Description: Small nucleolar RNA SNORD17: a 255-nucleotide RNA from Chloroceryle aenea. Gene Ontology terms of the family: RNA processing and nucleolus. The family has 19 seed sequences and 1,015 matches in Rfam 15.1. From the family's description: The snoRNA HBI-43 belongs to the C/D family of snoRNAs, guiding 2'O-ribose methylation at position U3797 of the 28S rRNA. Pseudouridylation in position U3797 is predicted to be guided by the H/ACA snoRNA ACA48. The source organism's lineage runs through Eukaryota, Eumetazoa, Theropoda, Cerylidae and Chloroceryle. It is annotated as a C/D-box small nucleolar RNA.
RNA sequence: GUGAGGUGAUGACAAAGUUUAUCCAUUCUCUGAGUGCAGUGGUGCUGCCCUCCUGCAGCACCCUGAUUCCUGUUCUAGGGUCUGGGUGCUGUGCAGCCUCCAGAGGCCCUCCAGUCUCCCAGUGUCCUGCUGGUGGCUGCUGUGGCAUGUGGCUGGCGGGCUGGCUGCCUGCAGGAGUGCAGUGAUGCUGACAGGGUUGGAGCCCCUCUCUAGGGUGCUCCAUCCUCACUGAGAUGAAACAUGAUGUCUGAUCAC
Numbered sequence: 001g002u003g004a005g006g007u008g009a010u011g012a013c014a015a016a017g018u019u020u021a022u023c024c025a026u027u028c029u030c031u032g033a034g035u036g037c038a039g040u041g042g043u044g045c046u047g048c049c050c051u052c053c054u055g056c057a058g059c060a061c062c063c064u065g066a067u068u069c070c071u072g073u074u075c076u077a078g079g080g081u082c083u084g085g086g087u088g089c090u091g092u093g094c095a096g097c098c099u100c101c102a103g104a105g106g107c108c109c110u111c112c113a114g115u116c117u118c119c120c121a122g123u124g125u126c127c128u129g130c131u132g133g134u135g136g137c138u139g140c141u142g143u144g145g146c147a148u149g150u151g152g153c154u155g156g157c158g159g160g161c162u163g164g165c166u167g168c169c170u171g172c173a174g175g176a177g178u179g180c181a182g183u184g185a186u187g188c189u190g191a192c193a194g195g196g197u198u199g200g201a202g203c204c205c206c207u208c209u210c211u212a213g214g215g216u217g218c219u220c221c222a223u224c225c226u227c228a229c230u231g232a233g234a235u236g237a238a239a240c241a242u243g244a245u246g247u248c249u250g251a252u253c254a255c
Stems, first nucleotide, its partner, number of pairs: 010254003017247002020244001026238003030233002034229002039192002042189001043184006050177008059088005065082001068080004093168006106146002112139005118133002121131004194227002196224001198222004205215002